[Rfam]
RNA: Xanthine riboswitch aptamer (NMT1 RNA)
Organism: Acinetobacter sp. NBRC 100985
RNA sequence: UGUCAGAGUAGAAGCGUUCAGCAUAUAUCUAAAAAUAUAUGUGGGUCAUUGCUCAGAAA
Number, nucleotide and partner (000 for none) at each position: 001u000002g000003u000004c000005a000006g054007a053008g052009u051010a050011g000012a000013a000014g000015c044016g000017u000018u000019c045020a000021g042022c041023a040024u039025a038026u037027a036028u000029c000030u000031a000032a000033a000034a000035a000036u027037a026038u025039a024040u023041g022042u021043g000044g015045g019046u000047c000048a000049u000050u010051g009052c008053u007054c006055a000056g000057a000058a000059a000